[Rfam]
RNA sequence: GUUUAGGUGGUUGAUGCCUGGCUCGAGACCAUUCUUCCAUAUGGUCAUGGUAAUGCUGAUUAUGAUUUCGGACCAGGCUUCAUCCCCCUUAAC
Numbered sequence: 001g002u003u004u005a006g007g008u009g010g011u012u013g014a015u016g017c018c019u020g021g022c023u024c025g026a027g028a029c030c031a032u033u034c035u036u037c038c039a040u041a042u043g044g045u046c047a048u049g050g051u052a053a054u055g056c057u058g059a060u061u062a063u064g065a066u067u068u069c070g071g072a073c074c075a076g077g078c079u080u081c082a083u084c085c086c087c088c089u090u091a092a093c
Base pairs, nucleotide, nucleotide: 001093002092003091005089006088007087009085010084012082013081016078017077018076019075020074021073024070025069026068
Dot-bracket structure: (((.(((.((.((..((((((..(((.........................................)))..))))))..)).)).))).)))